This 145-nucleotide sequence from Zea mays belongs to the Rfam family "Small nucleolar RNA snoR2/U65".
Rfam classes the family as an H/ACA-box small nucleolar RNA.
On this family, see Shaw et al., J Cell Sci 1998: "Localization and processing from a polycistronic precursor of novel snoRNAs in maize".
Pairs were carried over by alignment from the consensus structure, which was predicted with WAR.
The organism belongs to Zea, within Eukaryota.
Rfam's curators put it in the seed alignment.
RNA sequence: GGCCUGAUGCCACGUCUCUGGUAGCUACAUGCUUUGACCAGAGAUGCUAUGAUCAGGCCGAUACAAAAGUCGUUUCACAUGUUGAUAGGAACCUGGGGACGGCUUCUCCAUCUGUCCCACAGAGCCGGUUUCUGUGAUCACAUUC
Numbered sequence: 001g002g003c004c005u006g007a008u009g010c011c012a013c014g015u016c017u018c019u020g021g022u023a024g025c026u027a028c029a030u031g032c033u034u035u036g037a038c039c040a041g042a043g044a045u046g047c048u049a050u051g052a053u054c055a056g057g058c059c060g061a062u063a064c065a066a067a068a069g070u071c072g073u074u075u076c077a078c079a080u081g082u083u084g085a086u087a088g089g090a091a092c093c094u095g096g097g098g099a100c101g102g103c104u105u106c107u108c109c110a111u112c113u114g115u116c117c118c119a120c121a122g123a124g125c126c127g128g129u130u131u132c133u134g135u136g137a138u139c140a141c142a143u144u145c
Stems, first nucleotide, its partner, number of pairs: 002058007009050001013046006020039003024032002075137005088126002093122003096118005